This 87-nucleotide RNA sequence from Cognatundibacterium rugosum belongs to the Rfam family "c-di-GMP-I riboswitch aptamer".
[Rfam]
RNA sequence: UUUUCUUGAGGGCAAACCCGUUGAAAGACGGAGACGCAAAGCCACCGGCCUACAGCGCAUCUGCGCCAUGGUAGCGGGGUUGCCAAC
Numbered sequence: 001u002u003u004u005c006u007u008g009a010g011g012g013c014a015a016a017c018c019c020g021u022u023g024a025a026a027g028a029c030g031g032a033g034a035c036g037c038a039a040a041g042c043c044a045c046c047g048g049c050c051u052a053c054a055g056c057g058c059a060u061c062u063g064c065g066c067c068a069u070g071g072u073a074g075c076g077g078g079g080u081u082g083c084c085a086a087c
Base pairs, nucleotide, nucleotide: 012037013036018031019030020029021028022027040081041080042079043078045077046076047075048072049071050070055066056065057064058063
Lineage of the source: Bacteria > Pseudomonadati > Pseudomonadota > Betaproteobacteria > Cognatundibacterium. GEMM was predicted in a large-scale screen for bacterial structured RNA regulatory elements.